[Rfam]
RNA sequence: GCACGAGUUUGGUUUUAUGGCAGGCCUGUCCCCGUGGGCCUCUCAUAGUGCCCCAUGAAAGAGCAAACUGUGGCCCCAAACCAUUUCCUGGCCUGUGCCCAUAGGCUGCUGGCACUGAAGCGGGUUGCACAGUG
Dot-bracket structure: .((.(.((......((((((.(((((.........)).))).)))))).)).)..)).............((((((.....((...((((((((........))))))..))...))....)))))).......
Numbered sequence: 001g002c003a004c005g006a007g008u009u010u011g012g013u014u015u016u017a018u019g020g021c022a023g024g025c026c027u028g029u030c031c032c033c034g035u036g037g038g039c040c041u042c043u044c045a046u047a048g049u050g051c052c053c054c055a056u057g058a059a060a061g062a063g064c065a066a067a068c069u070g071u072g073g074c075c076c077c078a079a080a081c082c083a084u085u086u087c088c089u090g091g092c093c094u095g096u097g098c099c100c101a102u103a104g105g106c107u108g109c110u111g112g113c114a115c116u117g118a119a120g121c122g123g124g125u126u127g128c129a130c131a132g133u134g
Stems, first nucleotide, its partner, number of pairs: 002057002005053001007051002015048006022041003025037002071127006082117002087112002089108006

Small nucleolar RNA SNORA42/SNORA80 family: a 134-nucleotide RNA sequence from Propithecus coquereli. The members of this family belong to the H/ACA class of snoRNAs that guide the sites of modification of uridines to pseudouridines. Human ACA42 (SNORA42) was cloned from HeLa cells by immunoprecipitation with anti-GAR1 antibody. A reference for the family is Schattner et al. (2006), "A computational screen for mammalian pseudouridylation guide H/ACA RNAs", RNA. By type it is an H/ACA-box small nucleolar RNA. Pairs were carried over by alignment from the consensus structure, which was predicted with RNAalifold. NCBI's taxonomy places the organism under Eukaryota, Bilateria, Amniota, Strepsirrhini, Propithecus.